[Rfam]
RNA sequence: UCGCAUCCGCCAUCCGGUUCAGCCGUGUCGCGGGAGGUUUUCCAACCAGCUCAGGUCUCCUGCAGGGAGACGGAAAGUAGCG
Numbered sequence: 001u002c003g004c005a006u007c008c009g010c011c012a013u014c015c016g017g018u019u020c021a022g023c024c025g026u027g028u029c030g031c032g033g034g035a036g037g038u039u040u041u042c043c044a045a046c047c048a049g050c051u052c053a054g055g056u057c058u059c060c061u062g063c064a065g066g067g068a069g070a071c072g073g074a075a076a077g078u079a080g081c082g
Stems, first nucleotide, its partner, number of pairs: 002082003006034005015025004036047004049078003055071007

Rfam assigns this 82-nucleotide RNA sequence from a Comamonadaceae bacterium to the family "SucA RNA motif". Pairs were carried over by alignment from the consensus structure, which is taken from published work. The source organism's lineage runs through Bacteria, Pseudomonadati, Pseudomonadota, Burkholderiales and Comamonadaceae. The match comes from Rfam's covariance-model search (68 bits).